The family of this 341-nucleotide part of an RNA from Chionoecetes opilio is "Eukaryotic large subunit ribosomal RNA".

RNA sequence: CGGGUGGGACCUCGAAGGUCGAACCGGGGGGAUUCAGCUCGUCGGCCAAAGCUGGCUGAGUGUUGGGAUUCGCUAAUGCGACCCAGGAACUCUUGGGCGUGCCCGCACUCAAGCCAGCGUCGGCGGGCGUAUUUCCCCUCGUGAUGUAGGUCGCCGCGACCCGUUGCUGGGGACGUCUAAGGCCCGGUUGGACUGGUACCCCGACGUCGUGCGUUUCGGCGCCGGCGAAGGGGGAAACCUCCGGUGUCCUGGCUGCCCUGCGACGGUCGUGUAGCAGAGGGCUUGUUCCUCUCGCGGCGUGCAAAAGGUCGGUGACCCACCCGACCCGUCUUGAAACACGG
Numbered sequence: 001c002g003g004g005u006g007g008g009a010c011c012u013c014g015a016a017g018g019u020c021g022a023a024c025c026g027g028g029g030g031g032a033u034u035c036a037g038c039u040c041g042u043c044g045g046c047c048a049a050a051g052c053u054g055g056c057u058g059a060g061u062g063u064u065g066g067g068a069u070u071c072g073c074u075a076a077u078g079c080g081a082c083c084c085a086g087g088a089a090c091u092c093u094u095g096g097g098c099g100u101g102c103c104c105g106c107a108c109u110c111a112a113g114c115c116a117g118c119g120u121c122g123g124c125g126g127g128c129g130u131a132u133u134u135c136c137c138c139u140c141g142u143g144a145u146g147u148a149g150g151u152c153g154c155c156g157c158g159a160c161c162c163g164u165u166g167c168u169g170g171g172g173a174c175g176u177c178u179a180a181g182g183c184c185c186g187g188u189u190g191g192a193c194u195g196g197u198a199c200c201c202c203g204a205c206g207u208c209g210u211g212c213g214u215u216u217c218g219g220c221g222c223c224g225g226c227g228a229a230g231g232g233g234g235a236a237a238c239c240u241c242c243g244g245u246g247u248c249c250u251g252g253c254u255g256c257c258c259u260g261c262g263a264c265g266g267u268c269g270u271g272u273a274g275c276a277g278a279g280g281g282c283u284u285g286u287u288c289c290u291c292u293c294g295c296g297g298c299g300u301g302c303a304a305a306a307g308g309u310c311g312g313u314g315a316c317c318c319a320c321c322c323g324a325c326c327c328g329u330c331u332u333g334a335a336a337c338a339c340g341g
Stems, first nucleotide, its partner, number of pairs: 001323008009313003326341004